[Rfam]
RNA: TPP riboswitch aptamer (THI element)
Organism: Schaedlerella arabinosiphila
RNA sequence: UAAUGUACACAGGGGCGCUGUGAAACUGUUCCGGAGAGGUUUACCGCGGGAACAGGAACUGCGGGACAGUUUCAAAACGGCUGAGAUGUAUGUGUUUUCAUACAGACCCUUUUAACUUGAUCCGGGUAAUGCCGGCGUAAGGAAAGGAGAAUUUCAUAAU
Numbered sequence: 001u002a003a004u005g006u007a008c009a010c011a012g013g014g015g016c017g018c019u020g021u022g023a024a025a026c027u028g029u030u031c032c033g034g035a036g037a038g039g040u041u042u043a044c045c046g047c048g049g050g051a052a053c054a055g056g057a058a059c060u061g062c063g064g065g066a067c068a069g070u071u072u073c074a075a076a077a078c079g080g081c082u083g084a085g086a087u088g089u090a091u092g093u094g095u096u097u098u099c100a101u102a103c104a105g106a107c108c109c110u111u112u113u114a115a116c117u118u119g120a121u122c123c124g125g126g127u128a129a130u131g132c133c134g135g136c137g138u139a140a141g142g143a144a145a146g147g148a149g150a151a152u153u154u155c156a157u158a159a160u
Stems, first nucleotide, its partner, number of pairs: 006148001008146001011110004017081005088103005116141004122135004